[Rfam]
The record is a 145-nucleotide sequence from Helianthus annuus, which matches "Small nucleolar RNA F1/F2/snoR5a" in Rfam. This family contains F1, F2 and snoR5a sequences, all of which are members of the the H/ACA class of snoRNA that guide the sites of modification of uridines to pseudouridines. The source organism's lineage runs through Eukaryota, Mesangiospermae, Asterales, Asteroideae and Helianthus. Its family is annotated with nucleolus and RNA processing in the Gene Ontology. The base pairs follow the family's consensus structure, which was predicted with PFOLD.
RNA sequence: AAAUGCCCUAUGGUAUCUGAUGCCUUGACCUAAUUAAUGUUUUAGGCAUCUCGUUAGACGGGCAGAUAGCGAUGAAAACAGGUUUGCGACACAGUUUGCUGCUACAUUUCUAAGCUUACUGUUACUUUUAUUACUGUUCACAUUU
Numbered sequence: 001a002a003a004u005g006c007c008c009u010a011u012g013g014u015a016u017c018u019g020a021u022g023c024c025u026u027g028a029c030c031u032a033a034u035u036a037a038u039g040u041u042u043u044a045g046g047c048a049u050c051u052c053g054u055u056a057g058a059c060g061g062g063c064a065g066a067u068a069g070c071g072a073u074g075a076a077a078a079c080a081g082g083u084u085u086g087c088g089a090c091a092c093a094g095u096u097u098g099c100u101g102c103u104a105c106a107u108u109u110c111u112a113a114g115c116u117u118a119c120u121g122u123u124a125c126u127u128u129u130a131u132u133a134c135u136g137u138u139c140a141c142a143u144u145u
Stems, first nucleotide, its partner, number of pairs: 004064005009058001019050007027042002029039001077138005091122005098115003